[Rfam]
RNA sequence: AUUUAUCUUCGGGGCGUGGUGAAAUUCCCGACCGGCGGUAAUGAAGCAAUAUGCUUUUAGUCCGCGAGCCGUUAAUAUAAUGGCAGGAUUUGGUGAGAUUCCAAAACCGACAGUAAAGUCUGGAUGGGAGAAGAUAAAG
Dot-bracket structure: ..((((((((.......((.......))..[[((((((.....................[[))))....(............).....(((((.......)))))]])).(((....]]))).......))))))))..

Source information
FMN riboswitch aptamer (RFN element): a 139-nucleotide RNA sequence from Heyndrickxia ginsengihumi. The base pairs follow the family's consensus structure, which is taken from published work. The RFN element is a highly conserved domain that is found frequently in the 5'-untranslated regions of prokaryotic mRNAs that encode for flavin mononucleotide (FMN) biosynthesis and transport proteins.